A member of the RNA family "Small nucleolar RNA SNORD111" from Ornithorhynchus anatinus, 82 nucleotides long. It is annotated as a C/D-box small nucleolar RNA. A reference for the family is Galardi et al. (2002), "Purified box C/D snoRNPs are able to reproduce site-specific 2'-O-methylation of target RNA in vitro", Mol Cell Biol. The family's consensus secondary structure was predicted with RNAalifold.

RNA sequence: UUGCCUGAAAUGAUGACUAUUUCAUGUCUCUUCUGAGACUCCUGAAGCUCUGGAGAUAGCACUUACCUCUCUGAUCAGGCAU
Numbered sequence: 001u002u003g004c005c006u007g008a009a010a011u012g013a014u015g016a017c018u019a020u021u022u023c024a025u026g027u028c029u030c031u032u033c034u035g036a037g038a039c040u041c042c043u044g045a046a047g048c049u050c051u052g053g054a055g056a057u058a059g060c061a062c063u064u065a066c067c068u069c070u071c072u073g074a075u076c077a078g079g080c081a082u
Base pairs, nucleotide, nucleotide: 002081003080004079005078